[Rfam]
RNA sequence: AAACUUACCUGGCUGGGGGCGUCUCGCGAUCAAGGAGGCGAGAAUCCCAUGGUGAGGCCCACACAUUGCACUUUAGGGAGGGCUGAUCCGUGUGGCAGCUUCGGAUUGAAGUUAGCCAAUUUUUGUGUGAGGGCUGCGUUCGCGCGGCCCUGG
Numbered sequence: 001a002a003a004c005u006u007a008c009c010u011g012g013c014u015g016g017g018g019g020c021g022u023c024u025c026g027c028g029a030u031c032a033a034g035g036a037g038g039c040g041a042g043a044a045u046c047c048c049a050u051g052g053u054g055a056g057g058c059c060c061a062c063a064c065a066u067u068g069c070a071c072u073u074u075a076g077g078g079a080g081g082g083c084u085g086a087u088c089c090g091u092g093u094g095g096c097a098g099c100u101u102c103g104g105a106u107u108g109a110a111g112u113u114a115g116c117c118a119a120u121u122u123u124u125g126u127g128u129g130a131g132g133g134c135u136g137c138g139u140u141c142g143c144g145c146g147g148c149c150c151u152g153g
Stems, first nucleotide, its partner, number of pairs: 012116004016048004023042005049091004054087001056084003060080001062078001064076001093111001130151004135146004
RNA: U1 spliceosomal RNA